[Rfam]
A member of the RNA family "msiK RNA" from Corynebacterium diphtheriae, 58 nucleotides long. The family's RNA type in Rfam is cis-regulatory element. The sequence is in the family's curated seed alignment.
RNA sequence: CACUUUAUUUCUUCUACUCGGAUCGUUCGGCACGUACCUGCCGAUAAAGAAUGGAGUU
Numbered sequence: 001c002a003c004u005u006u007a008u009u010u011c012u013u014c015u016a017c018u019c020g021g022a023u024c025g026u027u028c029g030g031c032a033c034g035u036a037c038c039u040g041c042c043g044a045u046a047a048a049g050a051a052u053g054g055a056g057u058u
Stems, first nucleotide, its partner, number of pairs: 010050004015046002027044006